[Rfam]
RNA sequence: GGAAGUCUUCGGGGCAGGGUGAUAUGCGAAGCAUAGAUUCCCGACCGACGGUGAUUGUGCAUGACACAUUAGUCCGUGAACUGUAGUAUUGCAGUUGAUUUGGUGAAAAUCCAAAACCGACAGUAUAGUCUGGAUGGGAGAAGAUAAGU
Numbered sequence: 001g002g003a004a005g006u007c008u009u010c011g012g013g014g015c016a017g018g019g020u021g022a023u024a025u026g027c028g029a030a031g032c033a034u035a036g037a038u039u040c041c042c043g044a045c046c047g048a049c050g051g052u053g054a055u056u057g058u059g060c061a062u063g064a065c066a067c068a069u070u071a072g073u074c075c076g077u078g079a080a081c082u083g084u085a086g087u088a089u090u091g092c093a094g095u096u097g098a099u100u101u102g103g104u105g106a107a108a109a110u111c112c113a114a115a116a117c118c119g120a121c122a123g124u125a126u127a128g129u130c131u132g133g134a135u136g137g138g139a140g141a142a143g144a145u146a147a148g149u
Stems, first nucleotide, its partner, number of pairs: 005145006017042003044129002046119002048077004072117002080095003099115005121132003
Notes: Shown here is a 149-nucleotide RNA sequence from Roseburia sp. CAG:45, a member of the family "FMN riboswitch aptamer (RFN element)". The family's consensus secondary structure is taken from published work.